[Rfam]
RNA: Purine riboswitch aptamer
Organism: Paenibacillus sp. PvR098
Nucleotides: 101
Base pairs, nucleotide, nucleotide: 018087021084022083023082024081025080029049030048031047032046033045034044035043058077060076061075062074063073064072
Number, partner (000 for none) and nucleotide at each position: 001000u002000c003000u004000u005000a006000a007000a008000c009000u010000u011000a012000c013000c014000u015000u016000a017000c018087c019000g020000a021084u022083c023082g024081u025080a026000u027000a028000u029049c030048c031047u032046u033045g034044a035043c036000a037000a038000u039000a040000c041000g042000g043035g044034u045033c046032a047031a048030g049029g050000g051000u052000u053000u054000c055000u056000a057000c058077c059000a060076a061075g062074g063073g064072a065000c066000c067000g068000c069000a070000a071000a072064u073063u074062c075061c076060u077058g078000g079000c080025u081024a082023c083022g084021a085000a086000g087018g088000g089000u090000g091000c092000u093000u094000u095000u096000c097000c098000g099000c100000a101000c